[Rfam]
RNA: Small nucleolar RNA snoR31/Z110/Z27
Organism: Apium graveolens
RNA sequence: CUAGAAAAGUGAUGAGAUCUGUAAAUCUUAGGACACCUUCUGACACAGAAUGACAAUGCUGUGUAUGAGAACAAGAUUUCAGUUUCUGAUUUCAAU
Numbered sequence: 001c002u003a004g005a006a007a008a009g010u011g012a013u014g015a016g017a018u019c020u021g022u023a024a025a026u027c028u029u030a031g032g033a034c035a036c037c038u039u040c041u042g043a044c045a046c047a048g049a050a051u052g053a054c055a056a057u058g059c060u061g062u063g064u065a066u067g068a069g070a071a072c073a074a075g076a077u078u079u080c081a082g083u084u085u086c087u088g089a090u091u092u093c094a095a096u
Stems, first nucleotide, its partner, number of pairs: 002095001004093004041047002